[Rfam]
RNA sequence: UUGCUGGUAACGGCGAGGUUUGAAGGAAGCGAUAGGAAGUGAGCAGUACAUAGCGUAAGCAAACCUGAUUCGGCGUUGCGGGAGGGUAAGUGUCCAAAAUAGCACGAAGCCCGAUACCUGAUCAGUCCCGUAAUGUGUUUGAGGAUGCGAUUGCCCACAGGGAGUUCGC
Numbered sequence: 001u002u003g004c005u006g007g008u009a010a011c012g013g014c015g016a017g018g019u020u021u022g023a024a025g026g027a028a029g030c031g032a033u034a035g036g037a038a039g040u041g042a043g044c045a046g047u048a049c050a051u052a053g054c055g056u057a058a059g060c061a062a063a064c065c066u067g068a069u070u071c072g073g074c075g076u077u078g079c080g081g082g083a084g085g086g087u088a089a090g091u092g093u094c095c096a097a098a099a100u101a102g103c104a105c106g107a108a109g110c111c112c113g114a115u116a117c118c119u120g121a122u123c124a125g126u127c128c129c130g131u132a133a134u135g136u137g138u139u140u141g142a143g144g145a146u147g148c149g150a151u152u153g154c155c156c157a158c159a160g161g162g163a164g165u166u167c168g169c
Stems, first nucleotide, its partner, number of pairs: 001016006029169004041156001043154004047149001049147003064144003068140001073136003077132007084112004090105004